[Rfam]
RNA sequence: UCGCGAGGACGACCUCGCGACUCAUUCGAGCGAUCAAUUCCGGGGACGACCCCA
Numbered sequence: 001u002c003g004c005g006a007g008g009a010c011g012a013c014c015u016c017g018c019g020a021c022u023c024a025u026u027c028g029a030g031c032g033a034u035c036a037a038u039u040c041c042g043g044g045g046a047c048g049a050c051c052c053c054a
Base pairs, nucleotide, nucleotide: 001020002019003018004017005016006015007014008013042053043052044051045050
Shown here is a 54-nucleotide RNA from Pseudomonas protegens, a member of the family "Guanidine-II riboswitch aptamer (mini-ykkC)". Gene Ontology term of the family: regulation of gene expression. A reference for the family is Weinberg et al. (2007), "Identification of 22 candidate structured RNAs in bacteria using the CMfinder comparative genomics pipeline", Nucleic Acids Res. Simpler in structure and has fewer highly conserved nucleotide positions than the ykkC-yxkD leader. Despite this each of its two stem-loop structures directly bind free guanidine. Therefore, mini-ykkC RNA motif represents a distinct class of guanidine-sensing RNAs. Its crystal structure was also determined.